[Rfam]
RNA sequence: AUAUUCGGGCAAUCGCUGCAAUGCUAGACAUUGUAGAGGAAAGUCCAUGCUCACACAAUUCUGCGAUGAAUGUAGUGUUCGUGCUUAGUGAAAAAAUAAACUAAGGCAGCUAGAUUAGCUGACGGCGGGAUGAAGGCCUAAGUUCUAUUAUGGGAUAUGGCUGAAAAUCUCUGAAAGUGCCACAGUGACGUAGCUGUAUAGGAAACUAUACAGGUGGAACGAGGUAAACCCCACGAGUGAGAAACCCAAAUUAUGGUAGGGGCAUUUUCUUGAAGGAAUUGAACGGAUAGAAGAACAGAAGUAAUUCUGUAGAUAGAUGAUUGCCAUCUACAUCGUACGAGGUAAAGCACCGUUUGAGUACCGUAGAGACAAAACAUGGCUUAUUGAA
Numbered sequence: 001a002u003a004u005u006c007g008g009g010c011a012a013u014c015g016c017u018g019c020a021a022u023g024c025u026a027g028a029c030a031u032u033g034u035a036g037a038g039g040a041a042a043g044u045c046c047a048u049g050c051u052c053a054c055a056c057a058a059u060u061c062u063g064c065g066a067u068g069a070a071u072g073u074a075g076u077g078u079u080c081g082u083g084c085u086u087a088g089u090g091a092a093a094a095a096a097u098a099a100a101c102u103a104a105g106g107c108a109g110c111u112a113g114a115u116u117a118g119c120u121g122a123c124g125g126c127g128g129g130a131u132g133a134a135g136g137c138c139u140a141a142g143u144u145c146u147a148u149u150a151u152g153g154g155a156u157a158u159g160g161c162u163g164a165a166a167a168u169c170u171c172u173g174a175a176a177g178u179g180c181c182a183c184a185g186u187g188a189c190g191u192a193g194c195u196g197u198a199u200a201g202g203a204a205a206c207u208a209u210a211c212a213g214g215u216g217g218a219a220c221g222a223g224g225u226a227a228a229c230c231c232c233a234c235g236a237g238u239g240a241g242a243a244a245c246c247c248a249a250a251u252u253a254u255g256g257u258a259g260g261g262g263c264a265u266u267u268u269c270u271u272g273a274a275g276g277a278a279u280u281g282a283a284c285g286g287a288u289a290g291a292a293g294a295a296c297a298g299a300a301g302u303a304a305u306u307c308u309g310u311a312g313a314u315a316g317a318u319g320a321u322u323g324c325c326a327u328c329u330a331c332a333u334c335g336u337a338c339g340a341g342g343u344a345a346a347g348c349a350c351c352g353u354u355u356g357a358g359u360a361c362c363g364u365a366g367a368g369a370c371a372a373a374a375c376a377u378g379g380c381u382u383a384u385u386g387a388a
Stems, first nucleotide, its partner, number of pairs: 004388003007384001008325007016036006041382003045379005050241005055073003059070003079236005084105006106123001107121006124231002127171004135162004142156006177229002179225003194213008245261003265294006295310006327367005
The record is a 388-nucleotide RNA from Psychrobacillus glaciei, which matches "Bacterial RNase P class B" in Rfam. It is annotated as a ribozyme. A search with the family's covariance model found it, with a score of 322 bits. Its Rfam clan is "RNaseP clan". Rfam links the family to the GO terms dimeric ribonuclease P complex, tRNA processing and ribonuclease P activity. Ribonuclease P (RNase P) is a ubiquitous endoribonuclease, found in archaea, bacteria and eukarya as well as chloroplasts and mitochondria.